Rfam assigns this 325-nucleotide RNA from Galemys pyrenaicus to the family "7SK RNA".
From the family's description: 7SK was discovered as an abundant small nuclear RNA in the mid-70s but a possible function has only recently been suggested. Two independent studies have found that 7SK RNA binds the CDK9/cyclin T complex (known as elongation factor P-TEFb). P-TEFb activates transcription by phosphorylating the C-terminal domain of RNA polymerase II. This process is negatively regulated by the 7SK RNP. The secondary structure of 7SK RNA shown here was proposed by Wasserman and Steitz on the basis of chemical modification and enzymatic cleavage experiments. This family contains a number of annotated pseudogenes and 7SK derived repeats. The threshold is artificially high to minimise the pseudogene count.
Taxonomically the source falls in Galemys (Eukaryota, Eumetazoa, Deuterostomia, Talpidae).
The match comes from Rfam's covariance-model search (276 bits).
On this family, see Blencowe, Curr Biol 2002: "Transcription: surprising role for an elusive small nuclear RNA".

RNA sequence: GGAUGUGAGGGCGAUCUGGCUGCGACAUCUGUCACCCCAUUGAUCGCCAGGGUUGAUUCGGCUGAUCUGGCUGGCUAGGCGGGUGUCCCCUUCCUCCCUCACCGCUCCAUGUGCGUCCCUCCCGAAGCUGCGCGCUCGGUCGAAGAGGACGGCCUUCCCCGAAUAGAGACGGACCGGUCUUCGGUCGAGGGUAUACGAGUAGCUGCGCUCCCCUGCUAGAACCUCCAAACAAGCUCAAAUGAGCAGAGAGAGAGGAGAGCAGCCCAGGAGAGGGAGGAGGUAGGCAAGAAGGGAGCCUGGUGUCCUUGACACAGUGGGCUGCCCG
Numbered sequence: 001g002g003a004u005g006u007g008a009g010g011g012c013g014a015u016c017u018g019g020c021u022g023c024g025a026c027a028u029c030u031g032u033c034a035c036c037c038c039a040u041u042g043a044u045c046g047c048c049a050g051g052g053u054u055g056a057u058u059c060g061g062c063u064g065a066u067c068u069g070g071c072u073g074g075c076u077a078g079g080c081g082g083g084u085g086u087c088c089c090c091u092u093c094c095u096c097c098c099u100c101a102c103c104g105c106u107c108c109a110u111g112u113g114c115g116u117c118c119c120u121c122c123c124g125a126a127g128c129u130g131c132g133c134g135c136u137c138g139g140u141c142g143a144a145g146a147g148g149a150c151g152g153c154c155u156u157c158c159c160c161g162a163a164u165a166g167a168g169a170c171g172g173a174c175c176g177g178u179c180u181u182c183g184g185u186c187g188a189g190g191g192u193a194u195a196c197g198a199g200u201a202g203c204u205g206c207g208c209u210c211c212c213c214u215g216c217u218a219g220a221a222c223c224u225c226c227a228a229a230c231a232a233g234c235u236c237a238a239a240u241g242a243g244c245a246g247a248g249a250g251a252g253a254g255g256a257g258a259g260c261a262g263c264c265c266a267g268g269a270g271a272g273g274g275a276g277g278a279g280g281u282a283g284g285c286a287a288g289a290a291g292g293g294a295g296c297c298u299g300g301u302g303u304c305c306u307u308g309a310c311a312c313a314g315u316g317g318g319c320u321g322c323c324c325g
Stems, first nucleotide, its partner, number of pairs: 001108003005102007013093002018090002024087010035074002037070003042067004046062003116172002119168003122139004127135002140162003147158003203267002208262002211259001213257002216254001223250003291324002294320005300312004
It is annotated as a non-coding RNA gene.